[Rfam]
RNA sequence: ACGACAGGUACGGGAGACACUGGCGUAUGUCAGGGCCGAAGGAGCAACCGCCCCGGUAAACUCUCAGGCAAAAGAACCGGCCUACUGG
Number, nucleotide and partner (000 for none) at each position: 001a000002c000003g000004a000005c000006a083007g082008g081009u080010a000011c079012g078013g077014g000015a000016g000017a000018c000019a000020c033021u032022g031023g030024c000025g000026u000027a000028u000029g000030u023031c022032a021033g020034g000035g069036c068037c067038g065039a064040a000041g000042g063043a062044g061045c000046a000047a000048c056049c055050g000051c000052c000053c000054c000055g049056g048057u000058a000059a000060a000061c044062u043063c042064u039065c038066a000067g037068g036069c035070a000071a000072a000073a000074g000075a000076a000077c013078c012079g011080g009081c008082c007083u006084a000085c000086u000087g000088g000
Rfam assigns this 88-nucleotide RNA from Donghicola eburneus to the family "Glycine riboswitch aptamer". It scores 56 bits against the family's covariance model.